[Rfam]
RNA: icd-II ncRNA motif
Organism: Polynucleobacter necessarius
RNA sequence: CUGACGAUUUAAAAUGAAAGACUCGCCUCAUUGGCAAUAGGUGCGCUAAAAGUGACUUGCAAAAUGUGGAUUUGAGAGUGACAGGGUAAAAAAACCUGACUCUGUAAUUUUUACAAUAUUGAGG
Number, nucleotide and partner (000 for none) at each position: 001c000002u121003g120004a119005c000006g117007a000008u000009u000010u000011a111012a110013a109014a000015u000016g000017a000018a000019a000020g000021a000022c076023u075024c074025g073026c000027c069028u068029c000030a067031u066032u000033g000034g060035c059036a000037a000038u000039a000040g057041g056042u055043g000044c000045g053046c052047u000048a000049a000050a000051a000052g046053u045054g000055a042056c041057u040058u000059g035060c034061a000062a000063a000064a000065u000066g031067u030068g028069g027070a000071u000072u000073u025074g024075a023076g022077a000078g000079u000080g101081a000082c098083a097084g096085g095086g000087u000088a000089a000090a000091a000092a000093a000094a000095c085096c084097u083098g082099a000100c000101u080102c000103u000104g000105u000106a000107a000108u000109u013110u012111u011112u000113a000114c000115a000116a000117u006118a000119u004120u003121g002122a000123g000124g000